[Rfam]
RNA sequence: GAGUCUAACGCGCGUGCGAGUCGGAGGGCUCGAGCGAAACCCUGCUGGUGCAAUGAAGGUGAGGGCCGGGGCGCCCCGGCUGAGGUGGGAUCCCGCCGCCAGUCCUCGCGGCAGCGGCGGGCGCACCACCGGCACAUCUCACCCGCCCCGUCGGGGAGGUGGAGCAUGAGAGCGCGCGUUAGGACCCGAAAGAUGGUGAACUAUGCCUGGGCAGGACGAAGCCAGAGGAAACUCUGGUGGAGGUCCGCAGCAGUCCUGUCGUGCAAAUCGGUCGUCCGACCUGGGUAUAGGGGCGAAAGACUAAUCGAACCAUCUAGUAGCUGGUU
Numbered sequence: 001g002a003g004u005c006u007a008a009c010g011c012g013c014g015u016g017c018g019a020g021u022c023g024g025a026g027g028g029c030u031c032g033a034g035c036g037a038a039a040c041c042c043u044g045c046u047g048g049u050g051c052a053a054u055g056a057a058g059g060u061g062a063g064g065g066c067c068g069g070g071g072c073g074c075c076c077c078g079g080c081u082g083a084g085g086u087g088g089g090a091u092c093c094c095g096c097c098g099c100c101a102g103u104c105c106u107c108g109c110g111g112c113a114g115c116g117g118c119g120g121g122c123g124c125a126c127c128a129c130c131g132g133c134a135c136a137u138c139u140c141a142c143c144c145g146c147c148c149c150g151u152c153g154g155g156g157a158g159g160u161g162g163a164g165c166a167u168g169a170g171a172g173c174g175c176g177c178g179u180u181a182g183g184a185c186c187c188g189a190a191a192g193a194u195g196g197u198g199a200a201c202u203a204u205g206c207c208u209g210g211g212c213a214g215g216a217c218g219a220a221g222c223c224a225g226a227g228g229a230a231a232c233u234c235u236g237g238u239g240g241a242g243g244u245c246c247g248c249a250g251c252a253g254u255c256c257u258g259u260c261g262u263g264c265a266a267a268u269c270g271g272u273c274g275u276c277c278g279a280c281c282u283g284g285g286u287a288u289a290g291g292g293g294c295g296a297a298a299g300a301c302u303a304a305u306c307g308a309a310c311c312a313u314c315u316a317g318u319a320g321c322u323g324g325u326u
Stems, first nucleotide, its partner, number of pairs: 005182011017170001020049003025043004030038001053060002084130005092121008132165002135161005143153001185324002188321001192314006201290011212278001214246004221238007250275002253272001255271002258269001292302002
Dot-bracket structure: ....(((((((((((.(..(((..((((.(.......).))))...)))...((....)).......................(((((...((((((((..............))))))))....))))).((.(((((...(.........)...)))))..))....).)))))))))))..((.(...((((((...((((((((((((.((((...(((((((....)))))))....))))...((.(.((.(..........)))).))..).))))))))))).((.......))......))))))......).))..

Eukaryotic large subunit ribosomal RNA: a 326-nucleotide part of an RNA from Eleutherodactylus coqui. The organism belongs to Eleutherodactylus, within Eukaryota.